Notes: Rfam assigns this 153-nucleotide sequence from Paenibacillus sp. J2TS4 to the family "Ribosomal protein L10 leader". About the family: This family is a putative r-protein leader autoregulatory structure found in B. subtilis and other low-GC Gram-positive bacteria. The source organism's lineage runs through Bacteria, Bacillati, Bacilli, Paenibacillaceae and Paenibacillus.
[Rfam]
RNA sequence: CUUAAAUUGAAUAUGCUGCCGUAGACAGCAGGUGCUUACUCAAGCUUAAUUUCCUGCCGAGGUUUAUGAUAUAGUUCAUUUCGUGCUAUUGUUGCGGAAUAUCUCAGAUCAUCAUGCCUUCGUACUGUCUGCGAAGGCUUUUCUAUUUGCAGC
Numbered sequence: 001c002u003u004a005a006a007u008u009g010a011a012u013a014u015g016c017u018g019c020c021g022u023a024g025a026c027a028g029c030a031g032g033u034g035c036u037u038a039c040u041c042a043a044g045c046u047u048a049a050u051u052u053c054c055u056g057c058c059g060a061g062g063u064u065u066a067u068g069a070u071a072u073a074g075u076u077c078a079u080u081u082c083g084u085g086c087u088a089u090u091g092u093u094g095c096g097g098a099a100u101a102u103c104u105c106a107g108a109u110c111a112u113c114a115u116g117c118c119u120u121c122g123u124a125c126u127g128u129c130u131g132c133g134a135a136g137g138c139u140u141u142u143c144u145a146u147u148u149g150c151a152g153c
Stems, first nucleotide, its partner, number of pairs: 028057005034045003116138009